RNA sequence: CGUAGCUUCUUUCAAUGGCAGGAAAUCCGCCUGAUAUGCGGGUAACGAUAGUUCGAUUCUAUCAGCUACGA
Numbered sequence: 001c002g003u004a005g006c007u008u009c010u011u012u013c014a015a016u017g018g019c020a021g022g023a024a025a026u027c028c029g030c031c032u033g034a035u036a037u038g039c040g041g042g043u044a045a046c047g048a049u050a051g052u053u054c055g056a057u058u059c060u061a062u063c064a065g066c067u068a069c070g071a
Stems, first nucleotide, its partner, number of pairs: 001070007010024004026042005047063005
Overview:
tRNA: a 71-nucleotide RNA from Ruminococcaceae bacterium YAD3003. Rfam 15.1 lists 5,335,975 matches to the family in 14,413 species. By type it is a transfer RNA. It scores 52 bits against the family's covariance model.